[Rfam]
RNA sequence: AUAGCCUUUAAGCCAAUCCUGUGAGGUUGGGAAGGGUUCGUCAAGAGAGCUUAUGGACUGCACAGUUUUGAAUGUCGGCUGUGUGGAAAAUUUCCGGGCUACCCUCCUCAGGGAGGGUAGCCUUUUAUUA
Numbered sequence: 001a002u003a004g005c006c007u008u009u010a011a012g013c014c015a016a017u018c019c020u021g022u023g024a025g026g027u028u029g030g031g032a033a034g035g036g037u038u039c040g041u042c043a044a045g046a047g048a049g050c051u052u053a054u055g056g057a058c059u060g061c062a063c064a065g066u067u068u069u070g071a072a073u074g075u076c077g078g079c080u081g082u083g084u085g086g087a088a089a090a091u092u093u094c095c096g097g098g099c100u101a102c103c104c105u106c107c108u109c110a111g112g113g114a115g116g117g118u119a120g121c122c123u124u125u126u127a128u129u130a
Stems, first nucleotide, its partner, number of pairs: 003037001005035005013030006053091002058086009096123012
The family of this 130-nucleotide RNA sequence from Alicyclobacillus tolerans is "PyrR binding site". By type it is a cis-regulatory element. The organism belongs to Alicyclobacillus, within Bacteria.